[Rfam]
RNA sequence: UCUAGUCCCUGAGCUCUGACUCCCAGCCGUUCGCUCGCCCUGGCACACUUCCCCGGUGCCAGGUCGGAAUGGAUGGGGAUCAGGAUUCAGGGGCAGUCCGGA
Dot-bracket structure: .........((((.((.((.(((((.((((((...((.((((((((.........)))))))).)))))))).))))).)).)).)))).............
Numbered sequence: 001u002c003u004a005g006u007c008c009c010u011g012a013g014c015u016c017u018g019a020c021u022c023c024c025a026g027c028c029g030u031u032c033g034c035u036c037g038c039c040c041u042g043g044c045a046c047a048c049u050u051c052c053c054c055g056g057u058g059c060c061a062g063g064u065c066g067g068a069a070u071g072g073a074u075g076g077g078g079a080u081c082a083g084g085a086u087u088c089a090g091g092g093g094c095a096g097u098c099c100g101g102a
Stems, first nucleotide, its partner, number of pairs: 010089004015084002018081002021078005027072006036066002039063008